About this RNA: Burkholderia sRNA 1: a 208-nucleotide RNA sequence from Burkholderia oklahomensis.
[Rfam]
RNA sequence: AAAUGCGCUACGGGGAACGAUAAAAACAGCGCGGGGGUAGCGUUGCUGGCACGCGUUCAGCGUGUCGGCAGCGGUUGUCUGCAUGCACGACGGGGCCAACCACCACAACAAACCAACAUGCAGGCACAUACGCCUAUUCAAUCGACGUUCCGCCGUCCGGCCGGGGGAAGCAGAGGUCAAUGCGGGCGGCGGCGGACGCAUUUUUUAC
Numbered sequence: 001a002a003a004u005g006c007g008c009u010a011c012g013g014g015g016a017a018c019g020a021u022a023a024a025a026a027c028a029g030c031g032c033g034g035g036g037g038u039a040g041c042g043u044u045g046c047u048g049g050c051a052c053g054c055g056u057u058c059a060g061c062g063u064g065u066c067g068g069c070a071g072c073g074g075u076u077g078u079c080u081g082c083a084u085g086c087a088c089g090a091c092g093g094g095g096c097c098a099a100c101c102a103c104c105a106c107a108a109c110a111a112a113c114c115a116a117c118a119u120g121c122a123g124g125c126a127c128a129u130a131c132g133c134c135u136a137u138u139c140a141a142u143c144g145a146c147g148u149u150c151c152g153c154c155g156u157c158c159g160g161c162c163g164g165g166g167g168a169a170g171c172a173g174a175g176g177u178c179a180a181u182g183c184g185g186g187c188g189g190c191g192g193c194g195g196a197c198g199c200a201u202u203u204u205u206u207a208c
Base pairs, nucleotide, nucleotide: 001203002202003201004200005199006198007197008036009035011033012032014030041073042072043071044070045069046068047067048066049065050064051063052062053061054060076126077125078124079123080122081121082120083119084118085117093104094103130148131147132146134144136142137141149196150195151194152193153192154191155190157189158188159187161185162184163183165181

Trans-encoded, exhibits differential expression profiles dependent on growth phase and cell stimuli, such as antbiotics and serum.